[Rfam]
RNA sequence: UUGCCCAUUUAGGACUGGCCAUGUCUUAAAUGGAUAACACAGGGGGGUAGACUAAUUCUCUCAAAAACCUGAAGUGAAGGCUUAAUAUUCCUUGCUUCGGAUCCUGUCGGGAGAAACAUGU
Numbered sequence: 001u002u003g004c005c006c007a008u009u010u011a012g013g014a015c016u017g018g019c020c021a022u023g024u025c026u027u028a029a030a031u032g033g034a035u036a037a038c039a040c041a042g043g044g045g046g047g048u049a050g051a052c053u054a055a056u057u058c059u060c061u062c063a064a065a066a067a068c069c070u071g072a073a074g075u076g077a078a079g080g081c082u083u084a085a086u087a088u089u090c091c092u093u094g095c096u097u098c099g100g101a102u103c104c105u106g107u108c109g110g111g112a113g114a115a116a117c118a119u120g121u
Stems, first nucleotide, its partner, number of pairs: 002049005008043003016036002019033001056115001058113005069100007078092003
Dot-bracket structure: .(((((.(((.....((.(.............).))....))).)))))......(.(((((......(((((((..(((.........))).)))))))........))))).)......
Small nucleolar RNA SNORA26: a 121-nucleotide RNA sequence from Astyanax mexicanus.
Rfam's curators write: The snoRNA HBI-6 belong to the H/ACA family of snoRNAs, guiding the pseudouridylation of position U4522 if the 28S rRNA. HBI-6 is the human orthologue of mouse MBI-6 snoRNA.
The source organism's lineage runs through Eukaryota, Deuterostomia, Otophysi, Characiformes and Astyanax.